[Rfam]
RNA sequence: ACAGUACAAACUGAUCAGGCCAAGAAUUAAUAUGGGUUAAUAAAAUAAUGUUAUAUGUAGGUAAACUAUUAUUUAGAUUAUGCUACAAAAGUUAUUUUAAAUCAUUAAGUUAAUUCAAGGAGCCGGGCCAAUAGGCAACAGGAUUAUUACAAUACCUGUGGGACAGUA
Number, nucleotide and partner (000 for none) at each position: 001a000002c000003a000004g000005u000006a000007c000008a000009a000010a167011c166012u165013g164014a000015u000016c162017a000018g124019g123020c122021c000022a000023a000024g116025a115026a114027u113028u112029a111030a110031u109032a000033u000034g000035g000036g000037u000038u000039a000040a000041u000042a000043a000044a000045a000046u000047a000048a000049u000050g000051u000052u000053a000054u000055a000056u000057g000058u000059a000060g000061g000062u000063a000064a000065a000066c000067u000068a000069u000070u000071a000072u000073u000074u000075a000076g000077a000078u000079u000080a000081u000082g000083c000084u000085a000086c000087a000088a000089a000090a000091g000092u000093u000094a000095u000096u000097u000098u000099a000100a000101a000102u000103c000104a000105u000106u000107a000108a000109g031110u030111u029112a028113a027114u026115u025116c024117a000118a000119g000120g000121a000122g020123c019124c018125g000126g000127g136128c135129c134130a000131a000132u000133a000134g129135g128136c127137a000138a159139c158140a157141g156142g155143a000144u000145u000146a000147u000148u000149a000150c000151a000152a000153u000154a000155c142156c141157u140158g139159u138160g000161g000162g016163a000164c013165a012166g011167u010168a000

A member of the RNA family "NiCo (Nickel/Cobalt) riboswitch aptamer" from Clostridium gasigenes, 168 nucleotides long.
Taxonomically the source falls in Clostridium (Bacteria, Bacillati, Bacillota, Eubacteriales).
It scores 51 bits against the family's covariance model.
For this family Rfam cites "Bacterial riboswitches cooperatively bind Ni(2+) or Co(2+) ions and control expression of heavy metal transporters" (Furukawa et al., Mol Cell, 2015).
Gene Ontology terms of the family: metal ion homeostasis and cobalt ion binding.